[Rfam]
Nucleotides: 105
Stems, first nucleotide, its partner, number of pairs: 001081001003079001005078006016045002024036002027034001052067005
Number, partner (000 for none) and nucleotide at each position: 001081c002000a003079c004000a005078c006077a007076c008075g009074g010073a011000a012000a013000u014000u015000g016045g017044g018000u019000g020000g021000u022000u023000g024036c025035g026000g027034g028000a029000g030000a031000a032000a033000u034027c035025c036024g037000u038000a039000a040000c041000g042000a043000u044017c045016c046000g047000c048000c049000g050000g051000u052067g053066g054065c055064a056063g057000u058000u059000a060000c061000a062000u063056c064055u065054g066053c067052c068000u069000c070000u071000u072000u073010u074009u075008c076007g077006u078005g079003g080000a081001g082000g083000u084000u085000c086000a087000a088000c089000c090000g091000g092000a093000a094000a095000g096000g097000a098000c099000a100000a101000a102000a103000c104000a105000a